[Rfam]
RNA sequence: AAAGUUCAAAACGACGAAAGCCCUACCUCUCUUCCAUCCUUACGGCUCCGAUGACCGCGCCAGUGUGAGUUGAAUUUUAAUCUUCAU
Dot-bracket structure: ..................................((..(((.(((.(.....).))).)..))..))....................

The record is an 87-nucleotide RNA from Ammoniphilus oxalaticus, which matches "BsrC" in Rfam. Rfam's curators write: The 301 nucleotide sequence from Kouji Nakamura has been trimmed to a highly conserved ~85 nucleotide long core to form this family. Lineage of the source: Bacteria > Bacillati > Bacillota > Paenibacillaceae > Ammoniphilus. For this family Rfam cites "Novel small RNA-encoding genes in the intergenic regions of Bacillus subtilis" (Saito et al., Gene, 2008).